[Rfam]
A member of the RNA family "let-7 microRNA precursor family" from Aquarana catesbeiana, 84 nucleotides long. A reference for the family is Liu et al. (2018), "Cryo-EM Structure of Human Dicer and Its Complexes with a Pre-miRNA Substrate", Cell. Rfam links the family to the GO terms RISC complex and miRNA-mediated post-transcriptional gene silencing. Rfam describes the family as follows. This family represents the microRNAs (miRNA) let-7 and mir-98. let-7 was identified from a study of developmental timing in C. elegans, and was later shown to be part of a much larger class of non-coding RNAs termed miRNAs. It scores 74 bits against the family's covariance model. The base pairs follow the family's consensus structure, which was predicted with RNAalifold. Taxonomically the source falls in Aquarana (Eukaryota, Gnathostomata, Euteleostomi, Dipnotetrapodomorpha). Clan: let-7 microRNA precursor clan.
RNA sequence: UCUGGCUGAGGUAGUAGUUUGUGUAGUUAGGGGGCAGUGGUGUUUGCCCAUGGAGAUAACUAGACAAACUACUGCCUUGCCAGA
Numbered sequence: 001u002c003u004g005g006c007u008g009a010g011g012u013a014g015u016a017g018u019u020u021g022u023g024u025a026g027u028u029a030g031g032g033g034g035c036a037g038u039g040g041u042g043u044u045u046g047c048c049c050a051u052g053g054a055g056a057u058a059a060c061u062a063g064a065c066a067a068a069c070u071a072c073u074g075c076c077u078u079g080c081c082a083g084a
Stems, first nucleotide, its partner, number of pairs: 001084006008078015024062004032049004
Dot-bracket structure: ((((((.(((((((((((((((.((((....((((..........)))).........)))).)))))))))))))))))))))